[Rfam]
This 176-nucleotide RNA sequence from Chloroflexales bacterium ZM16-3 belongs to the Rfam family "SAM riboswitch aptamer (S box leader)". A reference for the family is Baird et al. (2012), "YbxF and YlxQ are bacterial homologs of L7Ae and bind K-turns but not K-loops", RNA. The SAM riboswitch is found upstream of a number of genes which code for proteins involved in methionine or cysteine biosynthesis in Gram-positive bacteria.
RNA sequence: AGCUCAUCCAGAGCGGUGGAGGGACCGGCCCGACGAUACCGCGCCAACCACUGGGUUAUUGCAGAUUGCAGAUUGCAGAUUGCAGAUUGUUUCAGAACAAUCCGCAAUCUGCAAUCUACAAUCUGCAAUCAUUUCAGUAUGGUGGCAAUUCCGGCAGACUAUCUGGAAGAUGAGAG
Numbered sequence: 001a002g003c004u005c006a007u008c009c010a011g012a013g014c015g016g017u018g019g020a021g022g023g024a025c026c027g028g029c030c031c032g033a034c035g036a037u038a039c040c041g042c043g044c045c046a047a048c049c050a051c052u053g054g055g056u057u058a059u060u061g062c063a064g065a066u067u068g069c070a071g072a073u074u075g076c077a078g079a080u081u082g083c084a085g086a087u088u089g090u091u092u093c094a095g096a097a098c099a100a101u102c103c104g105c106a107a108u109c110u111g112c113a114a115u116c117u118a119c120a121a122u123c124u125g126c127a128a129u130c131a132u133u134u135c136a137g138u139a140u141g142g143u144g145g146c147a148a149u150u151c152c153g154g155c156a157g158a159c160u161a162u163c164u165g166g167a168a169g170a171u172g173a174g175a176g
Stems, first nucleotide, its partner, number of pairs: 003174006013042005021031003025154004043146004048142002050138006150168001155165004